Record summary: The family of this 140-nucleotide RNA sequence from Cohnella terricola is "c-di-AMP riboswitch aptamer (ydaO/yuaA leader)". Rfam links the family to the GO terms cyclic-di-AMP binding and regulation of gene expression.

[Rfam]
RNA sequence: AUUAUUAAUACGCUUAGUUUCCGCCUCUUGAGGACGGAAAGCGGGGGAACCGUUCAUGUGGGGCGAAUCGUUCGAUAGAACGUAGGGUACCAUCUACCCGAGUCCGUCAGCUAACCUCGUCAGCAGAGAUGGGUCUGAGC
Numbered sequence: 001a002u003u004a005u006u007a008a009u010a011c012g013c014u015u016a017g018u019u020u021c022c023g024c025c026u027c028u029u030g031a032g033g034a035c036g037g038a039a040a041g042c043g044g045g046g047g048a049a050c051c052g053u054u055c056a057u058g059u060g061g062g063g064c065g066a067a068u069c070g071u072u073c074g075a076u077a078g079a080a081c082g083u084a085g086g087g088u089a090c091c092a093u094c095u096a097c098c099c100g101a102g103u104c105c106g107u108c109a110g111c112u113a114a115c116c117u118c119g120u121c122a123g124c125a126g127a128g129a130u131g132g133g134u135c136u137g138a139g140c
Stems, first nucleotide, its partner, number of pairs: 012124003018040006041120006051060002061105003069082004085099004